[Rfam]
RNA sequence: GCAGCGAAACGGCAAACCCGAUGUGAGUCGGGGACGCAAAGCCACGGGGCCCGACCGGGUCAGCCGGGCUACCGAA
Numbered sequence: 001g002c003a004g005c006g007a008a009a010c011g012g013c014a015a016a017c018c019c020g021a022u023g024u025g026a027g028u029c030g031g032g033g034a035c036g037c038a039a040a041g042c043c044a045c046g047g048g049g050c051c052c053g054a055c056c057g058g059g060u061c062a063g064c065c066g067g068g069c070u071a072c073c074g075a076a
Base pairs, nucleotide, nucleotide: 012037013036017032018031019030020029021028022027040070041069042068043067045066046065047064048061049060050059051058052057
The record is a 76-nucleotide sequence from Phycicoccus duodecadis, which matches "c-di-GMP-I riboswitch aptamer" in Rfam. The family's consensus secondary structure is taken from published work.